[Rfam]
RNA sequence: UUUUCAGUUGAACUUGCAGUUUAAAGAAAAUGAUGAAUGGACAAUAUGACGUGAUUAUUGUGUCUUUGAGUAUAGGAGAACUGCAACACUCCUAUAUCCCCAUUCUGAU
Number, nucleotide and partner (000 for none) at each position: 001u000002u019003u018004u000005c016006a015007g014008u000009u000010g000011a000012a000013c000014u007015u006016g005017c000018a003019g002020u000021u000022u000023a000024a000025a000026g000027a000028a000029a000030a000031u000032g000033a000034u000035g000036a000037a000038u000039g000040g000041a000042c000043a000044a000045u000046a066047u000048g000049a063050c062051g061052u057053g000054a000055u000056u000057a052058u000059u000060g000061u051062g050063u049064c000065u000066u046067u000068g000069a000070g097071u096072a095073u094074a093075g092076g091077a090078g000079a000080a000081c000082u000083g000084c000085a000086a000087c000088a000089c000090u077091c076092c075093u074094a073095u072096a071097u070098c000099c000100c000101c000102a000103u000104u000105c000106u000107g000108a000109u000
Notes:
U8 small nucleolar RNA: a 109-nucleotide RNA from Conger conger. The base pairs follow the family's consensus structure, which is taken from published work. On this family, see Peculis, Mol Cell Biol 1997: "The sequence of the 5' end of the U8 small nucleolar RNA is critical for 5.8S and 28S rRNA maturation". By type it is a C/D-box small nucleolar RNA. Rfam links the family to the GO terms nucleolus and RNA processing.